[Rfam]
RNA: Small nucleolar RNA U54
RNA sequence: UGCUCAAGGAUUAUAAGCCAUGUUAUGCCAUCACAAUAUACGCUAUUCUGAAUCAUAUUAAGAUGUCAUAAACAUUAUGAGAGCA
Numbered sequence: 001u002g003c004u005c006a007a008g009g010a011u012u013a014u015a016a017g018c019c020a021u022g023u024u025a026u027g028c029c030a031u032c033a034c035a036a037u038a039u040a041c042g043c044u045a046u047u048c049u050g051a052a053u054c055a056u057a058u059u060a061a062g063a064u065g066u067c068a069u070a071a072a073c074a075u076u077a078u079g080a081g082a083g084c085a
Base pairs, nucleotide, nucleotide: 001085002084003083004082005081
Dot-bracket structure: (((((...........................................................................)))))